This 262-nucleotide sequence from Desmophyllum pertusum belongs to the Rfam family "Small nucleolar RNA SNORA53". The snoRNA ACA53 belongs to the H/ACA family of pseudouridylation guide snoRNAs. Lineage of the source: Eukaryota > Metazoa > Cnidaria > Hexacorallia > Desmophyllum.

RNA sequence: CACACACUUCCUUAGAUCCGUUCUUGGAGCAACAUUUAUUGUAUACUUUUGCAUUGUCUACAGUCUCGCUGUAGCACUGUUUAAGUGUAUCUUUAGUUGCUCAACAGCGCUAAGCUGCAAAUUGGGAACGCUUGAGUCAUGAGUGUGUAAGAUCAAUAUACCUCUCUGUGAUGCCUUAUGCCUUCUGAGUAUCAGCCUAGGUGCAGCAAUGCAGCUAGUUGUUGACCUUUAUGUCAGUGAGGCGGCAAUCACAAGGGACAAU
Numbered sequence: 001c002a003c004a005c006a007c008u009u010c011c012u013u014a015g016a017u018c019c020g021u022u023c024u025u026g027g028a029g030c031a032a033c034a035u036u037u038a039u040u041g042u043a044u045a046c047u048u049u050u051g052c053a054u055u056g057u058c059u060a061c062a063g064u065c066u067c068g069c070u071g072u073a074g075c076a077c078u079g080u081u082u083a084a085g086u087g088u089a090u091c092u093u094u095a096g097u098u099g100c101u102c103a104a105c106a107g108c109g110c111u112a113a114g115c116u117g118c119a120a121a122u123u124g125g126g127a128a129c130g131c132u133u134g135a136g137u138c139a140u141g142a143g144u145g146u147g148u149a150a151g152a153u154c155a156a157u158a159u160a161c162c163u164c165u166c167u168g169u170g171a172u173g174c175c176u177u178a179u180g181c182c183u184u185c186u187g188a189g190u191a192u193c194a195g196c197c198u199a200g201g202u203g204c205a206g207c208a209a210u211g212c213a214g215c216u217a218g219u220u221g222u223u224g225a226c227c228u229u230u231a232u233g234u235c236a237g238u239g240a241g242g243c244g245g246c247a248a249u250c251a252c253a254a255g256g257g258a259c260a261a262u
Base pairs, nucleotide, nucleotide: 002148003147004146005145006144007143008142011136012135013134014133015132019130020129021128022127023126024125025124026123027102028101029100030099031098032097038093043088044087045086046085047084051080052079053078056075058074059073060072061071062070063069105117106116107115108114162257163256164255165254172247173246174245175244182239